[Rfam]
RNA sequence: CGGGUUUACUCCUGGUGUUUACCGUUUCAUCUGGCCUAAGCCGGAUGUCGUUUUGGUGUCUGAUUCGGUAACGAAUCGGGAGCACCAUCUGCGUAGGCAUUUCUUUUAAGGCUUACGCCACCUACGGUCUUGGAUAGCCCCCGCCAGGCAGGGACCCCAAACCUUGGCUGGUGAGGUUGCCCUCACCA
Numbered sequence: 001c002g003g004g005u006u007u008a009c010u011c012c013u014g015g016u017g018u019u020u021a022c023c024g025u026u027u028c029a030u031c032u033g034g035c036c037u038a039a040g041c042c043g044g045a046u047g048u049c050g051u052u053u054u055g056g057u058g059u060c061u062g063a064u065u066c067g068g069u070a071a072c073g074a075a076u077c078g079g080g081a082g083c084a085c086c087a088u089c090u091g092c093g094u095a096g097g098c099a100u101u102u103c104u105u106u107u108a109a110g111g112c113u114u115a116c117g118c119c120a121c122c123u124a125c126g127g128u129c130u131u132g133g134a135u136a137g138c139c140c141c142c143g144c145c146a147g148g149c150a151g152g153g154a155c156c157c158c159a160a161a162c163c164u165u166g167g168c169u170g171g172u173g174a175g176g177u178u179g180c181c182c183u184c185a186c187c188a
Base pairs, nucleotide, nucleotide: 002157003156004155005154006153007152011148012147013146014145023050024049028047029046030045031044032043033042034041035040054087055086056085057084058083059082060079061078062077063076064075065074066073091144092143093142096139097138098137105134106133107132108131109130110129111128112127113126170187171186172185173184174183175182

Source information
The family of this 188-nucleotide RNA from Pseudomonas sp. TTU2014-080ASC is "Pseudomonas sRNA P27".